[Rfam]
RNA sequence: UUUGAUCGACCCCAGCCAUACCGGCCGGUCCGCCGGGCGGUCCCGCCCGUAGGUGGCGAGAACAGCGUGCGCCUC
Numbered sequence: 001u002u003u004g005a006u007c008g009a010c011c012c013c014a015g016c017c018a019u020a021c022c023g024g025c026c027g028g029u030c031c032g033c034c035g036g037g038c039g040g041u042c043c044c045g046c047c048c049g050u051a052g053g054u055g056g057c058g059a060g061a062a063c064a065g066c067g068u069g070c071g072c073c074u075c
Stems, first nucleotide, its partner, number of pairs: 015025003031071003038065001043060001047056003
This 75-nucleotide RNA from Nocardia wallacei belongs to the Rfam family "ASpks TB sRNA".
Taxonomically the source falls in Nocardia (Bacteria, Bacillati, Actinomycetes, Nocardiaceae).